[Rfam]
The family of this 76-nucleotide RNA from Ameiurus melas is "mir-7563 microRNA precursor family". The base pairs follow the family's consensus structure, which was predicted with RNAalifold. NCBI's taxonomy places the organism under Eukaryota, Deuterostomia, Vertebrata, Osteoglossocephalai, Ameiurus. Gene Ontology terms of the family: RISC complex and miRNA-mediated post-transcriptional gene silencing.

RNA sequence: ACCGCGUACUUACCUACUAUAUAUUAGCAGAAAUACAUGCAUGUCUCCUACUAUAUAGAAGGUAAGUAUGUGGUUU
Numbered sequence: 001a002c003c004g005c006g007u008a009c010u011u012a013c014c015u016a017c018u019a020u021a022u023a024u025u026a027g028c029a030g031a032a033a034u035a036c037a038u039g040c041a042u043g044u045c046u047c048c049u050a051c052u053a054u055a056u057a058g059a060a061g062g063u064a065a066g067u068a069u070g071u072g073g074u075u076u
Stems, first nucleotide, its partner, number of pairs: 001074015017058007025050003029046003033042002